[Rfam]
RNA sequence: AUAUAAUGAUGAUAAGUUUAAUCAUAAGUAAAACUUUGCUGAUUAACAACUUAAAAUUAAACCAAAAGGAUUCUGAUUGUAU
Numbered sequence: 001a002u003a004u005a006a007u008g009a010u011g012a013u014a015a016g017u018u019u020a021a022u023c024a025u026a027a028g029u030a031a032a033a034c035u036u037u038g039c040u041g042a043u044u045a046a047c048a049a050c051u052u053a054a055a056a057u058u059a060a061a062c063c064a065a066a067a068g069g070a071u072u073c074u075g076a077u078u079g080u081a082u
Stems, first nucleotide, its partner, number of pairs: 001082004
RNA: Small nucleolar RNA Me28S-Cm3227